[Rfam]
RNA sequence: GCUAUGGAGUGUCAUAUAAACUGUAGUAGCUUAGGCAAGGCAGGACACUGCGAAGUAGUGA
Numbered sequence: 001g002c003u004a005u006g007g008a009g010u011g012u013c014a015u016a017u018a019a020a021c022u023g024u025a026g027u028a029g030c031u032u033a034g035g036c037a038a039g040g041c042a043g044g045a046c047a048c049u050g051c052g053a054a055g056u057a058g059u060g061a
Base pairs, nucleotide, nucleotide: 001059002058003057004056005055009048010047011046012045013044021043022042023041029036030035
Dot-bracket structure: (((((...(((((.......(((.....((....))....))))))))......)))))..